[Rfam]
RNA sequence: UAGUAUCGGUGAAGAUGCCGAUUACCCGCUGUGGGACGAAAAGACCCCGUGAACCUUUACUAUAGCUUAGUAUUGACUUUGGACAAGUGAUGUGUAGGAUAGGUGGGAGACAUUGAAGUUGCGUCGCUAGGCGUGAUGGAGUCAUUGUUGAAAUACCACCCUUUACUUGUUUGAAGCCUAACUUCCCUUGGAAGGACAGUGCUUGGUGGGUAGUUUGACUGGGGUGGUCGCCUCCAAAAGAGUAACGGAGGCUUCUAAAGGUCCCCUCAGCACGCUUGGUAACCGUGCGUAGAGUGCAAUGGCAAAAGGGGGCUUGACUGAGAGACAUACAGGUCGAUCAGGUACGAAAGUAGAGCAUAGUGAUCCGGUGGUUCCGUAUGGAAGGGCCAUCGCUCAAAGGAUAAAAGGUACUCCGGGGAUAACAGGCUGAUCUCCCCCAAGAGCUCAUAUCGACGGGGGGGUUUGGCACCUCGAUGUCGGCUCGUCACAUCCUGGGGCUGGAGAAGGUCCCAAGGGUUGGGCUGUUCGCCCAUUAAAGUGGCACGCGAGCUGGGUUCAGAACGUCGUGAGACAGUUCGGUCUCUAUCUACAGUGGGCGUA
Dot-bracket structure: ....(((((........)))))..((((((((.(((.((......((((.(((((((.((((...((.((((..(.((((((((((((((.(.........(((((..(((......((((((((....))))))))...)))............)))))).)))))))))))))).)...(((.(....)))).....)))).))....))))..((((.....))))((((((...........))))))(.((....((((((((.(((((.........)))))...))((......))....))))))....((((..(((......)))..)))).(((....))).))..........(((((((.((........))))))))).....)......)))))..))))))........(((.((((((((...((.......))...)))))))..))))..........(((((((((((..((.((((((......))))))...)).(((((.....))))).....)))))..)..)))).).....(((((((....))).))))....))..)))))))))))....